Rfam assigns this 69-nucleotide sequence to the family "narK RNA". The family's RNA type in Rfam is cis-regulatory element.

RNA sequence: GGCCCGGCACUUGCACUAAUUCCUUCGACGGCAGCCAAUGAUGGUUGCCCCAUACGGCAAAGGCGUCGC
Numbered sequence: 001g002g003c004c005c006g007g008c009a010c011u012u013g014c015a016c017u018a019a020u021u022c023c024u025u026c027g028a029c030g031g032c033a034g035c036c037a038a039u040g041a042u043g044g045u046u047g048c049c050c051c052a053u054a055c056g057g058c059a060a061a062g063g064c065g066u067c068g069c
Base pairs, nucleotide, nucleotide: 030049031048032047033046034045035044036043